[Rfam]
MIR6274 microRNA precursor family: a 107-nucleotide RNA sequence from Prunus avium. NCBI's taxonomy places the organism under Eukaryota, Embryophyta, eudicotyledons, Rosales, Prunus.
RNA sequence: GGAUAGCACUGUUUUGCUAUACCCGACCAAUAACAUAAUGACAAGUGGAAAAAUUAUCCUACGUGUCAUUGCGUUAUUCAUCGGAGAUAGCAAAAAGUGAUAUAUGU
Numbered sequence: 001g002g003a004u005a006g007c008a009c010u011g012u013u014u015u016g017c018u019a020u021a022c023c024c025g026a027c028c029a030a031u032a033a034c035a036u037a038a039u040g041a042c043a044a045g046u047g048g049a050a051a052a053a054u055u056a057u058c059c060u061a062c063g064u065g066u067c068a069u070u071g072c073g074u075u076a077u078u079c080a081u082c083g084g085a086g087a088u089a090g091c092a093a094a095a096a097g098u099g100a101u102a103u104a105u106g107u
Stems, first nucleotide, its partner, number of pairs: 003105003012095009023084004029078006036071008045062004050057001